[Rfam]
RNA sequence: CCUGAUCUAUGAUUUUAAAACAAGAGGACUGUUGGAUGAAACUCGCGGAUAUGGGACUGAGAUCAGAU
Numbered sequence: 001c002c003u004g005a006u007c008u009a010u011g012a013u014u015u016u017a018a019a020a021c022a023a024g025a026g027g028a029c030u031g032u033u034g035g036a037u038g039a040a041a042c043u044c045g046c047g048g049a050u051a052u053g054g055g056a057c058u059g060a061g062a063u064c065a066g067a068u
Base pairs, nucleotide, nucleotide: 002066003065004064005063
The family of this 68-nucleotide RNA from Notothenia coriiceps is "Small nucleolar RNA SNORD99". The literature on the family includes a 2001 paper in EMBO J by Huttenhofer et al., "RNomics: an experimental approach that identifies 201 candidates for novel, small, non-messenger RNAs in mouse". By type it is a C/D-box small nucleolar RNA. The match comes from Rfam's covariance-model search (60 bits). The organism belongs to Notothenia, within Eukaryota. Gene Ontology terms of the family: nucleolus and RNA processing.